The record is a 141-nucleotide RNA from Lysinibacillus telephonicus, which matches "c-di-AMP riboswitch aptamer (ydaO/yuaA leader)" in Rfam. The source organism's lineage runs through Bacteria, Bacillati, Bacillota, Caryophanales and Lysinibacillus. About the family: This family represents a conserved RNA structure found upstream of the ydaO and yuaA genes in Bacillus subtilis and related genes in other bacteria.

[Rfam]
RNA sequence: AAAUAACACAGGCCAAAUCUCAUUAAUUUGAGAACGGAGGACCCACUUUUUUUGGGGUUAAUUCUGUAGUUACAGAAGGGAUGUAAGACUCUUUCGCCAUCCUACCCGUCAGCUAACUUCGUCGGCUAAAGCGGAGGAGGU
Numbered sequence: 001a002a003a004u005a006a007c008a009c010a011g012g013c014c015a016a017a018u019c020u021c022a023u024u025a026a027u028u029u030g031a032g033a034a035c036g037g038a039g040g041a042c043c044c045a046c047u048u049u050u051u052u053u054g055g056g057g058u059u060a061a062u063u064c065u066g067u068a069g070u071u072a073c074a075g076a077a078g079g080g081a082u083g084u085a086a087g088a089c090u091c092u093u094u095c096g097c098c099a100u101c102c103u104a105c106c107c108g109u110c111a112g113c114u115a116a117c118u119u120c121g122u123c124g125g126c127u128a129a130a131g132c133g134g135a136g137g138a139g140g141u
Stems, first nucleotide, its partner, number of pairs: 011127004018033005034122006044054002055107003063076004079102004